[Rfam]
RNA: Bacterial RNase P class B
RNA sequence: GAGGAAAGUCCGGGCUCGCACAUCCUGCGAUGGAUGUAGUGUUCGUGCCCGUUCGUAAUGGCGGGGCAGUCAGCUUUUUAGCAGACUGACGGCGGGGAAAGCAUCCUACAGCCAUCUUGGCCAUGGUGCAAAUACCCUGAAAGUGGAUAGAGACGAGUCGUCGGGGAAACUCGACGAGUGGAACGACUAAACCCCACGAGCGAGCAACUCAGUGUGUAGAGGCACCUGGCUGAGAGAAAUGAAUCGACGCUGGGACGAUCGCCAUAUGAUCGUAGAAAAAUGAUUGCCCCUUCUGUGGGAGGCUGGGAAGCCAAGAACCACAUUGGGACAGAACCCGGCUUA
Numbered sequence: 001g002a003g004g005a006a007a008g009u010c011c012g013g014g015c016u017c018g019c020a021c022a023u024c025c026u027g028c029g030a031u032g033g034a035u036g037u038a039g040u041g042u043u044c045g046u047g048c049c050c051g052u053u054c055g056u057a058a059u060g061g062c063g064g065g066g067c068a069g070u071c072a073g074c075u076u077u078u079u080a081g082c083a084g085a086c087u088g089a090c091g092g093c094g095g096g097g098a099a100a101g102c103a104u105c106c107u108a109c110a111g112c113c114a115u116c117u118u119g120g121c122c123a124u125g126g127u128g129c130a131a132a133u134a135c136c137c138u139g140a141a142a143g144u145g146g147a148u149a150g151a152g153a154c155g156a157g158u159c160g161u162c163g164g165g166g167a168a169a170c171u172c173g174a175c176g177a178g179u180g181g182a183a184c185g186a187c188u189a190a191a192c193c194c195c196a197c198g199a200g201c202g203a204g205c206a207a208c209u210c211a212g213u214g215u216g217u218a219g220a221g222g223c224a225c226c227u228g229g230c231u232g233a234g235a236g237a238a239a240u241g242a243a244u245c246g247a248c249g250c251u252g253g254g255a256c257g258a259u260c261g262c263c264a265u266a267u268g269a270u271c272g273u274a275g276a277a278a279a280a281u282g283a284u285u286g287c288c289c290c291u292u293c294u295g296u297g298g299g300a301g302g303c304u305g306g307g308a309a310g311c312c313a314a315g316a317a318c319c320a321c322a323u324u325g326g327g328a329c330a331g332a333a334c335c336c337g338g339c340u341u342a
Base pairs, nucleotide, nucleotide: 006341007340008339010338011337012336013335014334015204016203017202018201019200020037021036022035023034024033025032043199044198045197046196047195048065049064050063051062052061053060066090067088068087069086070085071084091194092193094137095136096135102128103127105126106125111121112120143192144191145188146187158177159176160175161174162173163172164171165170208221209220210219225254226253227252228251229250230249255273256272257271258270259269260268290326291325294322295321296320297319298318